RNA: mir-148/mir-152 microRNA precursor family
RNA sequence: CCUGGCUCAAGUUCUGUGAUACACUCAGACUUUGAAUCAGUGGUAGUCAGUGCAUGACAGAACUUUGGCCCGG
Number, nucleotide and partner (000 for none) at each position: 001c000002c000003u000004g070005g069006c068007u067008c000009a065010a064011g063012u062013u061014c060015u059016g058017u000018g000019a000020u000021a000022c052023a051024c050025u049026c000027a000028g048029a047030c046031u045032u000033u000034g000035a000036a000037u000038c000039a000040g000041u000042g000043g000044u000045a031046g030047u029048c028049a025050g024051u023052g022053c000054a000055u000056g000057a000058c016059a015060g014061a013062a012063c011064u010065u009066u000067g007068g006069c005070c004071c000072g000073g000